[Rfam]
Notes: This 61-nucleotide sequence from Phascolarctos cinereus belongs to the Rfam family "mir-7398 microRNA precursor family". NCBI's taxonomy places the organism under Eukaryota, Metazoa, Dipnotetrapodomorpha, Tetrapoda, Phascolarctos. The family's consensus secondary structure was predicted with RNAalifold.

RNA sequence: UGUGCAGAAGUGGGAAAUAUGCCGUGUUCUCUCUUUCGGUAAAUUUCUUCCCUCUCACAGU
Dot-bracket structure: .(((.(((.(.((((((...(((..............)))...)))))).).))))))...